[Rfam]
RNA: Makes More Granules Regulator RNA (mmgR)
RNA sequence: CAUCGUAGCCCUUCUUGGGCGUUUCCUCCCUAAACUUCGGGCUGCCGGCAACGGUGGCCUUUUUCUUUUUCUGGC
Number, nucleotide and partner (000 for none) at each position: 001c000002a000003u000004c000005g000006u000007a000008g020009c019010c018011c017012u000013u000014c000015u000016u000017g011018g010019g009020c008021g000022u000023u000024u000025c000026c000027u000028c000029c000030c000031u000032a000033a000034a000035c000036u000037u000038c000039g060040g059041g058042c057043u056044g055045c054046c053047g052048g000049c000050a000051a000052c047053g046054g045055u044056g043057g042058c041059c040060u039061u000062u000063u000064u000065c000066u000067u000068u000069u000070u000071c000072u000073g000074g000075c000